Rfam assigns this 89-nucleotide sequence from Malus baccata to the family "Small nucleolar RNA SNORD24". Rfam classes the family as a C/D-box small nucleolar RNA. Rfam 15.1 lists 2,843 matches to the family in 1,188 species. A reference for the family is Qu et al. (1995), "U24, a novel intron-encoded small nucleolar RNA with two 12 nt long, phylogenetically conserved complementarities to 28S rRNA", Nucleic Acids Res.
[Rfam]
RNA sequence: GGCCGGUGAUGCAGAUUGAUAUUUGCUACUCUUGAUGGGAAGGGAUCCUUCCCAUCUGAUGAAUCUUAUCCACCAAGAUCUCUGAGGCC
Dot-bracket structure: ((((.................................................................................))))